[Rfam]
RNA: mir-1255 microRNA precursor family
RNA sequence: GAGUUGCUUCUCAAGGAUGAGCAAUGGAAGUAGUUUUUUUAGAUUCCAAAGAAACUACCUACUUUGCUCAUCUUUGAGAAGCAACUCUUUAUCCAUUAAAAUUU
Numbered sequence: 001g002a003g004u005u006g007c008u009u010c011u012c013a014a015g016g017a018u019g020a021g022c023a024a025u026g027g028a029a030g031u032a033g034u035u036u037u038u039u040u041a042g043a044u045u046c047c048a049a050a051g052a053a054a055c056u057a058c059c060u061a062c063u064u065u066g067c068u069c070a071u072c073u074u075u076g077a078g079a080a081g082c083a084a085c086u087c088u089u090u091a092u093c094c095a096u097u098a099a100a101a102u103u104u
Stems, first nucleotide, its partner, number of pairs: 001104005015073010026062001028060001030058009
Dot-bracket structure: (((((.........((((((((((.(.(.(((((((((...........))))))))).).).))))))))))..........................)))))